The family of this 503-nucleotide part of an RNA from Methanobrevibacter smithii is "Archaeal small subunit ribosomal RNA". The family's consensus secondary structure is taken from published work. The family has 86 seed sequences and 709 matches in Rfam 15.1.

RNA sequence: AUUCUGUUUGAUCCUGGCAGAUGCUACUGCUAUUGGGAUUCGAUUAAGCCAUGCAAGUCGAACGAGUUUAGACUCGUGGCGUACGGCUCAGUAACACGUGGAUAACCUACCCUUAGGACUGGGAUAACCCUGGGAAACUGGGGAUAAUACUGGAUAGGCGAUUAUUCCUGUAAUGGUUUUUUGUUUAAAUGUUUUUUCGCCUAAGGAUGGGUCUGCGGCCGAUUAGGUAGUUGGUUAGGUAAUGGCUUACCAAGCCUUUGAUCGGUACGGGUUGUGAGAGCAAGAGCCCGGAGAUGGAACCUGAGACAAGGUUCCAGGCCCUACGGGGUGCAGCAGGCGCGAAACCUCCGCAAUGUGAGAAAUCGCGACGGGGGGAUCCCAAGUGCCAUUCUUAACGGGAUGGCUUUUCAUUAGUGUAAAGAGCUUUUGGAAUAAGAGCUGGGCAAGACCGGUGCCAGCCGCCGCGGUAACACCGGCAGCUCUAGUGGUAGCAGUUUUUAUUG
Numbered sequence: 001a002u003u004c005u006g007u008u009u010g011a012u013c014c015u016g017g018c019a020g021a022u023g024c025u026a027c028u029g030c031u032a033u034u035g036g037g038a039u040u041c042g043a044u045u046a047a048g049c050c051a052u053g054c055a056a057g058u059c060g061a062a063c064g065a066g067u068u069u070a071g072a073c074u075c076g077u078g079g080c081g082u083a084c085g086g087c088u089c090a091g092u093a094a095c096a097c098g099u100g101g102a103u104a105a106c107c108u109a110c111c112c113u114u115a116g117g118a119c120u121g122g123g124a125u126a127a128c129c130c131u132g133g134g135a136a137a138c139u140g141g142g143g144a145u146a147a148u149a150c151u152g153g154a155u156a157g158g159c160g161a162u163u164a165u166u167c168c169u170g171u172a173a174u175g176g177u178u179u180u181u182u183g184u185u186u187a188a189a190u191g192u193u194u195u196u197u198c199g200c201c202u203a204a205g206g207a208u209g210g211g212u213c214u215g216c217g218g219c220c221g222a223u224u225a226g227g228u229a230g231u232u233g234g235u236u237a238g239g240u241a242a243u244g245g246c247u248u249a250c251c252a253a254g255c256c257u258u259u260g261a262u263c264g265g266u267a268c269g270g271g272u273u274g275u276g277a278g279a280g281c282a283a284g285a286g287c288c289c290g291g292a293g294a295u296g297g298a299a300c301c302u303g304a305g306a307c308a309a310g311g312u313u314c315c316a317g318g319c320c321c322u323a324c325g326g327g328g329u330g331c332a333g334c335a336g337g338c339g340c341g342a343a344a345c346c347u348c349c350g351c352a353a354u355g356u357g358a359g360a361a362a363u364c365g366c367g368a369c370g371g372g373g374g375g376a377u378c379c380c381a382a383g384u385g386c387c388a389u390u391c392u393u394a395a396c397g398g399g400a401u402g403g404c405u406u407u408u409c410a411u412u413a414g415u416g417u418a419a420a421g422a423g424c425u426u427u428u429g430g431a432a433u434a435a436g437a438g439c440u441g442g443g444c445a446a447g448a449c450c451g452g453u454g455c456c457a458g459c460c461g462c463c464g465c466g467g468u469a470a471c472a473c474c475g476g477c478a479g480c481u482c483u484a485g486u487g488g489u490a491g492c493a494g495u496u497u498u499u500a501u502u503g
Base pairs, nucleotide, nucleotide: 004020005019006018007017008016022493023492024491025490026489027488028487029486030485031484033382034381035380036379037378038377039376040375041374042340048338049337050336052335053334054333057080058079059078062077063076064075065074066073067072087293088292089291097217098216099215100214101213102212103211106210107209111206112205113204114203115202116201117200119153120152121151122150128143129142130141131140132139133138158184159183160182161181164178167176168175191198219265220264221263226256227255228254231253232252233251234250235249237247238246268290269289270288271287272283273282274281275280295316296315297314298313299312300311318329319328320327321326346372348371349370350369354367355366356365357364358363385404386403387402388401389400390399391398392397409429410428413425414424415423436482437481438480439479440478441477449476450475451474452473458465459464